[Rfam]
RNA sequence: GCCUCUUCCUGCCUCUCACUAGCUUCAUCCCUUCCUCCCUAAAUUUUAGUCUGGGAGGGAAGGAGCUAUUGGUGGUCAGGAAUAGCG
Numbered sequence: 001g002c003c004u005c006u007u008c009c010u011g012c013c014u015c016u017c018a019c020u021a022g023c024u025u026c027a028u029c030c031c032u033u034c035c036u037c038c039c040u041a042a043a044u045u046u047u048a049g050u051c052u053g054g055g056a057g058g059g060a061a062g063g064a065g066c067u068a069u070u071g072g073u074g075g076u077c078a079g080g081a082a083u084a085g086c087g
Base pairs, nucleotide, nucleotide: 003085004084006082007081008080009079010078011077013075014074016072017071018070020068021067022066023065024064025063026062028060029059030058031057032056033055034054035053039049040048041047042046
Annotation
MIR1219 microRNA precursor family: an 87-nucleotide RNA sequence from Physcomitrium patens. Rfam links the family to the GO terms miRNA-mediated post-transcriptional gene silencing and RISC complex. The organism belongs to Physcomitrium, within Eukaryota.